The family of this 425-nucleotide RNA from Halomicronema hongdechloris is "Bacterial RNase P class A". The organism belongs to Halomicronema hongdechloris, within Bacteria.
RNA sequence: AGAGUCGGCGCAGGCGGUUACGGACGGGAGUUCCUGUCCGAGGAAAGUCCGGGCUCCCUAAGGACCAGACUUGCUGGGUAACGCCCAGUGCGGGUGACCGUGAGGAGAGUGCCACAGAAACAUACCGCCGAUGGCAAGACAGAGACAGACUGGAGCAAAGAUAGCGGGAAAUUCUGCCGUCUGCCUUCUGUCGUCUGCCUUUCACAGGUAAGGGUGCAAAGGUGCGGUAAGAGCGCACCAGCAGCAUCGAGAGGUGCUGGCUCGGUAAACCCCGGUCGGGAGCAAGGUCGGAGGGGUUAUGGUUGGUUCUUUACCGACCCCGUUGCAGGAACCGCUAGAGGCGUCUGGUAACAGGCGUCCCAGAUAGAUAACCGCCCUUCUGGAUACCCAGAAGAACAGAACCCGGCUUAUGUCCGGCUCUUUCC
Numbered sequence: 001a002g003a004g005u006c007g008g009c010g011c012a013g014g015c016g017g018u019u020a021c022g023g024a025c026g027g028g029a030g031u032u033c034c035u036g037u038c039c040g041a042g043g044a045a046a047g048u049c050c051g052g053g054c055u056c057c058c059u060a061a062g063g064a065c066c067a068g069a070c071u072u073g074c075u076g077g078g079u080a081a082c083g084c085c086c087a088g089u090g091c092g093g094g095u096g097a098c099c100g101u102g103a104g105g106a107g108a109g110u111g112c113c114a115c116a117g118a119a120a121c122a123u124a125c126c127g128c129c130g131a132u133g134g135c136a137a138g139a140c141a142g143a144g145a146c147a148g149a150c151u152g153g154a155g156c157a158a159a160g161a162u163a164g165c166g167g168g169a170a171a172u173u174c175u176g177c178c179g180u181c182u183g184c185c186u187u188c189u190g191u192c193g194u195c196u197g198c199c200u201u202u203c204a205c206a207g208g209u210a211a212g213g214g215u216g217c218a219a220a221g222g223u224g225c226g227g228u229a230a231g232a233g234c235g236c237a238c239c240a241g242c243a244g245c246a247u248c249g250a251g252a253g254g255u256g257c258u259g260g261c262u263c264g265g266u267a268a269a270c271c272c273c274g275g276u277c278g279g280g281a282g283c284a285a286g287g288u289c290g291g292a293g294g295g296g297u298u299a300u301g302g303u304u305g306g307u308u309c310u311u312u313a314c315c316g317a318c319c320c321c322g323u324u325g326c327a328g329g330a331a332c333c334g335c336u337a338g339a340g341g342c343g344u345c346u347g348g349u350a351a352c353a354g355g356c357g358u359c360c361c362a363g364a365u366a367g368a369u370a371a372c373c374g375c376c377c378u379u380c381u382g383g384a385u386a387c388c389c390a391g392a393a394g395a396a397c398a399g400a401a402c403c404c405g406g407c408u409u410a411u412g413u414c415c416g417g418c419u420c421u422u423u424c425c
Base pairs, nucleotide, nucleotide: 001421002420003419004418005417006416007415008414010413011412012411013376014375015374016373017372018371019370021040022039023038024037025036026035027034028033045409046408047407049406050405051404052403053402054282055281056280057279063314068277069276070275072274073273074088075087076086077085078084089103090101091100092099093098104272105271109270110269111266112265113264125213126212127209128208129207132204133203134202221239222238223237224236225235226234241261242259243258244257245256246255247254248253286333287332288331296326297325299323300322301321305319306318307317308316340359341358342357343356344355345354346353347352